[Rfam]
RNA sequence: CGACCGGUAACGCCAAAUCCUGCCGCCGGUCGUCGGAACGUCACCCAGGCAGGAGCGGGGGACCCACCGUUUCCCGGCGCCCACCGGCGAAGCCACCGGCUUCCCGCGUCAAGGGCGCCUCGGGGUGAAGCCGCCCAUUCCGCGGCCGGGCACCUCAGUCCGAACCCGACAGCUCACCUCGUCGGCGUGGAGGAAAUCCAU
Dot-bracket structure: ..........((((...(((((((.......................)))))))((((((....(........................................................)(((.....((((.......))))..((((......))))...))).........)))))).))))..............
Annotation: The family of this 201-nucleotide sequence from Micromonospora avicenniae is "c-di-AMP riboswitch aptamer (ydaO/yuaA leader)". A search with the family's covariance model found it, with a score of 53 bits.